[Rfam]
RNA: Small nucleolar RNA Z159/U59
Organism: Trema andersonii
RNA sequence: GUCUCUAAUGAUGAUCUAAGUUUAAUGACUUUCGUUCUUCUGAGGAAUUUUCGUGAGGAAUGUUUAUGGAGACCUGAACUGAAGAGAC
Numbered sequence: 001g002u003c004u005c006u007a008a009u010g011a012u013g014a015u016c017u018a019a020g021u022u023u024a025a026u027g028a029c030u031u032u033c034g035u036u037c038u039u040c041u042g043a044g045g046a047a048u049u050u051u052c053g054u055g056a057g058g059a060a061u062g063u064u065u066a067u068g069g070a071g072a073c074c075u076g077a078a079c080u081g082a083a084g085a086g087a088c
Stems, first nucleotide, its partner, number of pairs: 003086004